[Rfam]
RNA sequence: GGUAGUAGCAAAUAUUCAAAUGAGAACUUUGAAGACUGAAGUGGAGAAGGGUUCCAUGUGAACAGCAAUUGGACAUGGGUUAGCCGGUCCUAAGCGAUAGCUUAACUGCGUGAAUGUGAGGUUUCUCGUAGACCUCGUUUCGCGAAAGGGAAUCGGGUUAAUAUUCCCGAGCCAGGACGUGGAUACUGUACGGUAACGUAAACGAACUCCUCGACGCAGGCAGGUGCCCCGGGAAGCGUUGUCUUUGCUUUUUAACAGCCUUUUAUUUCUAUACCCUGGAAUCAGUUUAGCUGGAGAUAGGGUUGGAUGGCUGGUAUUGCACCUUGGUUUCCAAGGUGUCCGGUGCGCUCCUGACUGCCCAUGAAAAGAGGAGGGAGAGUUGUUAUUUGCACCCCUGGCCGUACCAAUAACCGCAUCAGGUCUCCAAGGUUAGCAGCCUCUGGUCAA
Numbered sequence: 001g002g003u004a005g006u007a008g009c010a011a012a013u014a015u016u017c018a019a020a021u022g023a024g025a026a027c028u029u030u031g032a033a034g035a036c037u038g039a040a041g042u043g044g045a046g047a048a049g050g051g052u053u054c055c056a057u058g059u060g061a062a063c064a065g066c067a068a069u070u071g072g073a074c075a076u077g078g079g080u081u082a083g084c085c086g087g088u089c090c091u092a093a094g095c096g097a098u099a100g101c102u103u104a105a106c107u108g109c110g111u112g113a114a115u116g117u118g119a120g121g122u123u124u125c126u127c128g129u130a131g132a133c134c135u136c137g138u139u140u141c142g143c144g145a146a147a148g149g150g151a152a153u154c155g156g157g158u159u160a161a162u163a164u165u166c167c168c169g170a171g172c173c174a175g176g177a178c179g180u181g182g183a184u185a186c187u188g189u190a191c192g193g194u195a196a197c198g199u200a201a202a203c204g205a206a207c208u209c210c211u212c213g214a215c216g217c218a219g220g221c222a223g224g225u226g227c228c229c230c231g232g233g234a235a236g237c238g239u240u241g242u243c244u245u246u247g248c249u250u251u252u253u254a255a256c257a258g259c260c261u262u263u264u265a266u267u268u269c270u271a272u273a274c275c276c277u278g279g280a281a282u283c284a285g286u287u288u289a290g291c292u293g294g295a296g297a298u299a300g301g302g303u304u305g306g307a308u309g310g311c312u313g314g315u316a317u318u319g320c321a322c323c324u325u326g327g328u329u330u331c332c333a334a335g336g337u338g339u340c341c342g343g344u345g346c347g348c349u350c351c352u353g354a355c356u357g358c359c360c361a362u363g364a365a366a367a368g369a370g371g372a373g374g375g376a377g378a379g380u381u382g383u384u385a386u387u388u389g390c391a392c393c394c395c396u397g398g399c400c401g402u403a404c405c406a407a408u409a410a411c412c413g414c415a416u417c418a419g420g421u422c423u424c425c426a427a428g429g430u431u432a433g434c435a436g437c438c439u440c441u442g443g444u445c446a447a
Stems, first nucleotide, its partner, number of pairs: 015033006034445004043425004049405002054078006063071002085401003089149002094143002097111002100109002119135003153170005173397004179392003183386002189200004207373006216358004221353004226348002229343003232252006256313005273303006282294004320338007411420002427439004
The family of this 447-nucleotide part of an RNA from Podilymbus podiceps is "Eukaryotic large subunit ribosomal RNA".
The base pairs follow the family's consensus structure, which is taken from published work.
The match comes from Rfam's covariance-model search (3228 bits).